RNA sequence: ACAAUGGACUGGCUUCAUAUGAGGGAUGGCGCACCGAUUCACCUUCUUUGGAUACUUCCAAGAAGGGAGGUGCUGCCUAUGGACACAAACGAUUUAAUGCUGAUGAUUUCUUUCGGCAUGUUAAUCGCGUUUAUUAUGUCCGACCAUAAAAAAUAACCCCUCAUAUGCUUGGCAGGCGUAAGGGGUUAUUCUUCCUACUGCGCCGCCCCUCUUAAUGGGGUUCGGUCUAUUGUACCGUAGGCGUUGGAGCGUCUACG
Numbered sequence: 001a002c003a004a005u006g007g008a009c010u011g012g013c014u015u016c017a018u019a020u021g022a023g024g025g026a027u028g029g030c031g032c033a034c035c036g037a038u039u040c041a042c043c044u045u046c047u048u049u050g051g052a053u054a055c056u057u058c059c060a061a062g063a064a065g066g067g068a069g070g071u072g073c074u075g076c077c078u079a080u081g082g083a084c085a086c087a088a089a090c091g092a093u094u095u096a097a098u099g100c101u102g103a104u105g106a107u108u109u110c111u112u113u114c115g116g117c118a119u120g121u122u123a124a125u126c127g128c129g130u131u132u133a134u135u136a137u138g139u140c141c142g143a144c145c146a147u148a149a150a151a152a153a154u155a156a157c158c159c160c161u162c163a164u165a166u167g168c169u170u171g172g173c174a175g176g177c178g179u180a181a182g183g184g185g186u187u188a189u190u191c192u193u194c195c196u197a198c199u200g201c202g203c204c205g206c207c208c209c210u211c212u213u214a215a216u217g218g219g220g221u222u223c224g225g226u227c228u229a230u231u232g233u234a235c236c237g238u239a240g241g242c243g244u245u246g247g248a249g250c251g252u253c254u255a256c257g
Stems, first nucleotide, its partner, number of pairs: 001233005007227003011223001014205001016167008024158002027155001031073003035070001081141005087135001094106003116132001118130001178198003206220004236257009
The family of this 257-nucleotide sequence from Lentibacillus amyloliquefaciens is "BsrG".
A search with the family's covariance model found it, with a score of 57 bits.
Rfam links the family to the GO terms autolysis and toxin activity.
Lineage of the source: Bacteria > Bacillota > Bacilli > Caryophanales > Lentibacillus.
From the family's description: bsrE, bsrG and bsrH pair through intermolecular interactions with antisense sRNAs. They form type I toxin/antitoxin system that includes an mRNA encoding for a short, toxic peptide (bsrE, bsrG and bsrH) and an antitoxin that is comprised of an antisense RNA. bsrG encodes a 39-amino-acid toxin, and the 180 nucleotide antisense sRNA called SR4 acts as the antitoxin (they overlap by 123 nucleotides). SR4 interaction with the 3'UTR of bsrG RNA promotes bsrG degradation and inhibits its translation. BsrG interferes with cell envelope biosynthesis, causes membrane invaginations and delocalisation of the cell wall synthesis and initiates autolysis. bsrE RNA encodes 30 amino-acid toxin peptide. Its antitoxin gene, SR5 overlaps by 112 nucleotides at the 3' end of bsrE. SR5 also overlaps bsrG from nucleotide 163 to 52 (Rfam overlap check). The antitoxin SR5 promotes bsrE degradation but unlike SR4 it does not directly inhibits toxin mRNA translation.
For this family Rfam cites "Identification of regulatory RNAs in Bacillus subtilis" (Irnov et al., Nucleic Acids Res, 2010).
It is annotated as a small RNA.